[Rfam]
Bacterial RNase P class B: a 328-nucleotide RNA sequence from Clostridiales bacterium CHKCI006. Clan: RNaseP clan. Pairs were carried over by alignment from the consensus structure, which is taken from published work. Lineage of the source: Bacteria > Bacillati > Bacillota > Clostridia > Eubacteriales.

RNA sequence: CAUUUUAGAUAAUCGCUGCUUACCCGAUAAGUAGAGGAAAGUCCAUGCUCGCACAGGCUGAGAUGCCUGUAGUGUUUGUGCGUAACAAAAAAAUAAGUUACGGCAGCUUUAGCUGACGACGGGUGGAAACCGUCCUUUGAUUCAAAGCGGUCAGAAACCAGAAAGUGCCACAGAAACGAUUCAUCGGGAAACCGAUGCUGAAAAGAGGUAAACUCCGCAAGCGAGAAACCCAAAUUUGGUAGGGGAACUAUUUUCGAGGAAUUCAACGAGAAAAUGGACACGCAAGUGUAGAUAAAUGAUUAUCCUAGACAAAACAUGGCUUAUUAAA
Numbered sequence: 001c002a003u004u005u006u007a008g009a010u011a012a013u014c015g016c017u018g019c020u021u022a023c024c025c026g027a028u029a030a031g032u033a034g035a036g037g038a039a040a041g042u043c044c045a046u047g048c049u050c051g052c053a054c055a056g057g058c059u060g061a062g063a064u065g066c067c068u069g070u071a072g073u074g075u076u077u078g079u080g081c082g083u084a085a086c087a088a089a090a091a092a093a094u095a096a097g098u099u100a101c102g103g104c105a106g107c108u109u110u111a112g113c114u115g116a117c118g119a120c121g122g123g124u125g126g127a128a129a130c131c132g133u134c135c136u137u138u139g140a141u142u143c144a145a146a147g148c149g150g151u152c153a154g155a156a157a158c159c160a161g162a163a164a165g166u167g168c169c170a171c172a173g174a175a176a177c178g179a180u181u182c183a184u185c186g187g188g189a190a191a192c193c194g195a196u197g198c199u200g201a202a203a204a205g206a207g208g209u210a211a212a213c214u215c216c217g218c219a220a221g222c223g224a225g226a227a228a229c230c231c232a233a234a235u236u237u238g239g240u241a242g243g244g245g246a247a248c249u250a251u252u253u254u255c256g257a258g259g260a261a262u263u264c265a266a267c268g269a270g271a272a273a274a275u276g277g278a279c280a281c282g283c284a285a286g287u288g289u290a291g292a293u294a295a296a297u298g299a300u301u302a303u304c305c306u307a308g309a310c311a312a313a314a315c316a317u318g319g320c321u322u323a324u325u326a327a328a
Base pairs, nucleotide, nucleotide: 004328005327006326007324008304009303010302011301012300013299014298016034017033018032019031020030021029039322040321041320043319044318045317046316047315048225049224050223051222052221053070054069055068056067057066058065076220077219078218079217080216081102082101083100084099085098086097103117104115105114106113107112118215119214122159123158124157129151130150131149132148136145137144165213166212167209168208169207182197183196184195185194186193187192229244230243231242248277249276250275251274252273253272254271278289279288280287281286